The family of this 280-nucleotide RNA from Teratosphaeria nubilosa is "Fungal signal recognition particle RNA".
Its family is annotated with signal recognition particle, plasma membrane targeting, signal recognition particle, endoplasmic reticulum targeting and SRP-dependent cotranslational protein targeting to membrane, signal sequence recognition in the Gene Ontology.
The base pairs follow the family's consensus structure, which is taken from published work.
Its Rfam clan is "SRP clan".
RNA sequence: UAGCUGUAAUGGCUCAACGGGCGAAGCACACCUCACUCACAACCCACCCCUAAUCAAUAUUACCCAACAGUGCGCGCCCAGUUCGAACUCGGUGGUGGUCGCCCACUCGCUUCGGUAACGAGCGAUGACUUGAUACGUUGGCGCGGCCCUGAGCUUCUGAGGCAUCCUUCAGCCGAGCAAUCGGGCAGAGAACUUCAGGCCAUGGAGUGGCGGCGCUGGACUACACGCGCUGUUGGCGGGGCUUGGGUUUGUGAGGUUUGUGGGGUGUGCGACGCUCUUU
Numbered sequence: 001u002a003g004c005u006g007u008a009a010u011g012g013c014u015c016a017a018c019g020g021g022c023g024a025a026g027c028a029c030a031c032c033u034c035a036c037u038c039a040c041a042a043c044c045c046a047c048c049c050c051u052a053a054u055c056a057a058u059a060u061u062a063c064c065c066a067a068c069a070g071u072g073c074g075c076g077c078c079c080a081g082u083u084c085g086a087a088c089u090c091g092g093u094g095g096u097g098g099u100c101g102c103c104c105a106c107u108c109g110c111u112u113c114g115g116u117a118a119c120g121a122g123c124g125a126u127g128a129c130u131u132g133a134u135a136c137g138u139u140g141g142c143g144c145g146g147c148c149c150u151g152a153g154c155u156u157c158u159g160a161g162g163c164a165u166c167c168u169u170c171a172g173c174c175g176a177g178c179a180a181u182c183g184g185g186c187a188g189a190g191a192a193c194u195u196c197a198g199g200c201c202a203u204g205g206a207g208u209g210g211c212g213g214c215g216c217u218g219g220a221c222u223a224c225a226c227g228c229g230c231u232g233u234u235g236g237c238g239g240g241g242c243u244u245g246g247g248u249u250u251g252u253g254a255g256g257u258u259u260g261u262g263g264g265g266u267g268u269g270c271g272a273c274g275c276u277c278u279u280u
Stems, first nucleotide, its partner, number of pairs: 002014003019277005026270007035257003038253003041249006047241004065235010076224001078219005083213003087208004092203004098134004104127002107125005113120002149153001156199007167190003174183003

Source information
It scores 112 bits against the family's covariance model. On this family, see Wild et al., Curr Opin Struct Biol 2002: "Towards the structure of the mammalian signal recognition particle". Rfam classes the family as a non-coding RNA gene.